The record is a 113-nucleotide sequence from Populus trichocarpa, which matches "Plastid-psbA-1 3UTR RNA" in Rfam. Clan: Plastid-psbA 3UTR RNA clan. The literature on the family includes a 2023 paper in Plant Commun by Richter et al., "Retrograde signaling in plants: A critical review focusing on the GUN pathway and beyond". From the family's description: Plastid psbA-1 is a non-coding RNA (ncRNA) present in plastids. It was identified in inverted repeat sequences in the 3 prime untranslate region (3UTR) of photosystem II quinone-binding protein (psbA). The match comes from Rfam's covariance-model search (57 bits). The base pairs follow the family's consensus structure, which was predicted with LocARNA. It is annotated as a cis-regulatory element.
RNA sequence: UUGAAGUUCCAUCUAUAAAUAGAUAAGAUUUUUGUCCUAGAGUAUACAAACUCUUAAAAAAAAGAAGCAAUCGCUAGUUUUUUAUAUCAACAUUUUUAAAAAUUAAUUUCUUU
Numbered sequence: 001u002u003g004a005a006g007u008u009c010c011a012u013c014u015a016u017a018a019a020u021a022g023a024u025a026a027g028a029u030u031u032u033u034g035u036c037c038u039a040g041a042g043u044a045u046a047c048a049a050a051c052u053c054u055u056a057a058a059a060a061a062a063a064g065a066a067g068c069a070a071u072c073g074c075u076a077g078u079u080u081u082u083u084a085u086a087u088c089a090a091c092a093u094u095u096u097u098a099a100a101a102a103u104u105a106a107u108u109u110c111u112u113u
Stems, first nucleotide, its partner, number of pairs: 008023002011020002061113007069104003075098003079090002